[Rfam]
Bacterial large subunit ribosomal RNA: a 334-nucleotide part of an RNA from Spiroplasma taiwanense. NCBI's taxonomy places the organism under Bacteria, Bacillati, Mollicutes, Spiroplasma, Spiroplasma taiwanense. Clan: LSU clan.
RNA sequence: CGAGAUAACUAUAGCUAAGGAACUCUGCAAAAUAACCCCGUAAGUUCGCGAGAAGGGGUGCUCACUUAUGGUGAGCCGCAGUGAAGAGGGAGGGGCAACUGUUUAGCAAAAACACAGCUCUCUGCAAAGUCGUAAGACGAAGUAUAGGGGGUGACGCCUGCCCAGUGCCGGAAGGUUAAGAGGAGAUGUUAGCUUCGGUGAAGCAUUGAAUUGAAGCCCCGGUGAACGGCGGCCGUAACUAUAACGGUCCUAAGGUAGCGAAAUUCCUUGUCAGGUAAGUUCUGACCCGCACGAAAGGCGUAAUGAUCCCUUCGCUGUCUCGGCUAUAGACUCG
Numbered sequence: 001c002g003a004g005a006u007a008a009c010u011a012u013a014g015c016u017a018a019g020g021a022a023c024u025c026u027g028c029a030a031a032a033u034a035a036c037c038c039c040g041u042a043a044g045u046u047c048g049c050g051a052g053a054a055g056g057g058g059u060g061c062u063c064a065c066u067u068a069u070g071g072u073g074a075g076c077c078g079c080a081g082u083g084a085a086g087a088g089g090g091a092g093g094g095g096c097a098a099c100u101g102u103u104u105a106g107c108a109a110a111a112a113c114a115c116a117g118c119u120c121u122c123u124g125c126a127a128a129g130u131c132g133u134a135a136g137a138c139g140a141a142g143u144a145u146a147g148g149g150g151g152u153g154a155c156g157c158c159u160g161c162c163c164a165g166u167g168c169c170g171g172a173a174g175g176u177u178a179a180g181a182g183g184a185g186a187u188g189u190u191a192g193c194u195u196c197g198g199u200g201a202a203g204c205a206u207u208g209a210a211u212u213g214a215a216g217c218c219c220c221g222g223u224g225a226a227c228g229g230c231g232g233c234c235g236u237a238a239c240u241a242u243a244a245c246g247g248u249c250c251u252a253a254g255g256u257a258g259c260g261a262a263a264u265u266c267c268u269u270g271u272c273a274g275g276u277a278a279g280u281u282c283u284g285a286c287c288c289g290c291a292c293g294a295a296a297g298g299c300g301u302a303a304u305g306a307u308c309c310c311u312u313c314g315c316u317g318u319c320u321c322g323g324c325u326a327u328a329g330a331c332u333c334g
Base pairs, nucleotide, nucleotide: 001334002333003332004331009329010328011327012326013325014324015323016322018320019319020318035059036058037057038056039055044049060076061075062074063073064072065071077081089313090312091311092310093309094308095307096305097304100114101113102112117152118151119150120149121148122147123146124145125142129138130137131136155300156299157298158297160230161229162228165227166226167223168222169221170220171219174218175217176216180212181211185207186206187205188204189203192199193198231249232248233247234246235245236244250254260287270286271285272284273283274282275281